[Rfam]
RNA: Archaeal large subunit ribosomal RNA, nucleotides 10 to 542
RNA sequence: CUACAACGCUGACUGGUGAAUAGCUCGGCUCGAGAGCCGACGACGGACGUGCCAAGCUGCGAAAAGCCCGAGGGAGCCGCACGGAGGCGAAGAACUCGGGGUUUCCGAAUAGGAAUCCUCUUUGCAAUUGCUUUGCGCAAUGGGGAACGCCGAGAACUGAAACAUCUCAGUAUCGGCAGGAACAGAAAGCAAUCCGCGAUAUCGUUAGUAACCGCGAGUGAACGCGACACAGUCCAAACCGAAGCCCUCACGGGCAAUGUGGUGUUCGGACUGACUCUCACUUCUGGACCGUCUACGAGAAGUCUCCUGGAAUGGAGCGUGAAACAGGGUGACAACCCCGUACCGUAGACCAGUACAGAACGCGUCAGCUCCAGAGUAACAGGGGUUGGAUAUCCCUUGUGAAUAUCUCAGGCAUCGACUGAGAAGACUAAACACUCCUCGAGACCGAUAGCGAACAAGUAGCGUGAGCGAACACUGAAAAGUAUUCCAUAACGGAUGGUGAAAUAGGGCUUGAACUCAGUCAGCCACUGAGC
Numbered sequence: 001c002u003a004c005a006a007c008g009c010u011g012a013c014u015g016g017u018g019a020a021u022a023g024c025u026c027g028g029c030u031c032g033a034g035a036g037c038c039g040a041c042g043a044c045g046g047a048c049g050u051g052c053c054a055a056g057c058u059g060c061g062a063a064a065a066g067c068c069c070g071a072g073g074g075a076g077c078c079g080c081a082c083g084g085a086g087g088c089g090a091a092g093a094a095c096u097c098g099g100g101g102u103u104u105c106c107g108a109a110u111a112g113g114a115a116u117c118c119u120c121u122u123u124g125c126a127a128u129u130g131c132u133u134u135g136c137g138c139a140a141u142g143g144g145g146a147a148c149g150c151c152g153a154g155a156a157c158u159g160a161a162a163c164a165u166c167u168c169a170g171u172a173u174c175g176g177c178a179g180g181a182a183c184a185g186a187a188a189g190c191a192a193u194c195c196g197c198g199a200u201a202u203c204g205u206u207a208g209u210a211a212c213c214g215c216g217a218g219u220g221a222a223c224g225c226g227a228c229a230c231a232g233u234c235c236a237a238a239c240c241g242a243a244g245c246c247c248u249c250a251c252g253g254g255c256a257a258u259g260u261g262g263u264g265u266u267c268g269g270a271c272u273g274a275c276u277c278u279c280a281c282u283u284c285u286g287g288a289c290c291g292u293c294u295a296c297g298a299g300a301a302g303u304c305u306c307c308u309g310g311a312a313u314g315g316a317g318c319g320u321g322a323a324a325c326a327g328g329g330u331g332a333c334a335a336c337c338c339c340g341u342a343c344c345g346u347a348g349a350c351c352a353g354u355a356c357a358g359a360a361c362g363c364g365u366c367a368g369c370u371c372c373a374g375a376g377u378a379a380c381a382g383g384g385g386u387u388g389g390a391u392a393u394c395c396c397u398u399g400u401g402a403a404u405a406u407c408u409c410a411g412g413c414a415u416c417g418a419c420u421g422a423g424a425a426g427a428c429u430a431a432a433c434a435c436u437c438c439u440c441g442a443g444a445c446c447g448a449u450a451g452c453g454a455a456c457a458a459g460u461a462g463c464g465u466g467a468g469c470g471a472a473c474a475c476u477g478a479a480a481a482g483u484a485u486u487c488c489a490u491a492a493c494g495g496a497u498g499g500u501g502a503a504a505u506a507g508g509g510c511u512u513g514a515a516c517u518c519a520g521u522c523a524g525c526c527a528c529u530g531a532g533c
Base pairs, nucleotide, nucleotide: 008525009524010523011522012521013520014519015518016517022511023475027446028445029443030442031441032440033439034438035436036435044107045106046105047104048061049060050059067100068099069098070097071096072095076088077087078086111119112118113117127141128140129139130138131137148179149177150176151175152174153173159166160165189197190196202227203226204225205224211219212218231429232428233427234426239262240261241260244255245254246253247252272367273366274365275364282360283359284358285357296345297344302318304317305316306315307314321325327339328338329337379400380399381398382397383396384395385394407423408422409421410420411419462469463468